[Rfam]
Nucleotides: 211
Stems, first nucleotide, its partner, number of pairs: 001137005015126001025116003029113003035051005052098007138153004
Number, partner (000 for none) and nucleotide at each position: 001137g002136g003135c004134a005133a006000u007000a008000a009000a010000u011000g012000g013000c014000a015126g016000c017000g018000u019000g020000u021000a022000a023000g024000g025116c026115g027114c028000a029113g030112c031111g032000g033000a034000c035051c036050c037049g038048g039047g040000g041000g042000c043000g044000g045000u046000a047039c048038c049037c050036g051035g052098c053097g054096g055095c056094u057093c058092c059000a060000c061000c062000a063000g064000a065000a066000g067000g068000a069000u070000c071000g072000c073000u074000u075000u076000c077000a078000g079000c080000g081000g082000u083000g084000c085000u086000c087000c088000u089000g090000a091000c092058g093057g094056g095055g096054c097053c098052g099000a100000a101000c102000u103000a104000g105000g106000a107000u108000c109000g110000a111031c112030g113029u114027g115026c116025g117000g118000a119000c120000g121000a122000g123000c124000a125000u126015u127000c128000u129000g130000u131000u132000u133005u134004u135003g136002c137001c138153c139152g140151g141150g142000c143000u144000g145000a146000g147000u148000a149000a150141c151140c152139c153138g154000u155000a156000a157000a158000a159000g160000g161000c162000u163000c164000a165000a166000a167000a168000c169000c170000a171000c172000a173000a174000g175000u176000g177000c178000c179000a180000a181000c182000g183000a184000c185000a186000a187000c188000g189000a190000g191000g192000c193000g194000c195000u196000c197000g198000c199000g200000a201000u202000u203000g204000c205000g206000g207000c208000c209000u210000a211000a
Rfam assigns this 211-nucleotide sequence from Sphingomonas jatrophae to the family "permuted transfer-messenger RNA". The family's RNA type in Rfam is non-coding RNA gene. The literature on the family includes a 1996 paper in RNA by Williams and Bartel, "Phylogenetic analysis of tmRNA secondary structure". A search with the family's covariance model found it, with a score of 134 bits. Pairs were carried over by alignment from the consensus structure, which is taken from published work.